[Rfam]
RNA sequence: GGGAGGAGACAUCCAUGGAACGUAGUUCCAUUUAGGAUGGAUGUCGACGACUUAUCACAGAGCAUAGCGAUGUGAUGUUACCCGUG
Numbered sequence: 001g002g003g004a005g006g007a008g009a010c011a012u013c014c015a016u017g018g019a020a021c022g023u024a025g026u027u028c029c030a031u032u033u034a035g036g037a038u039g040g041a042u043g044u045c046g047a048c049g050a051c052u053u054a055u056c057a058c059a060g061a062g063c064a065u066a067g068c069g070a071u072g073u074g075a076u077g078u079u080a081c082c083c084g085u086g
Stems, first nucleotide, its partner, number of pairs: 008045006015031006054076003058072002062068002
Rfam assigns this 86-nucleotide sequence to the family "GA-cis RNA". It is one of the family's seed sequences. Rfam classes the family as a small RNA.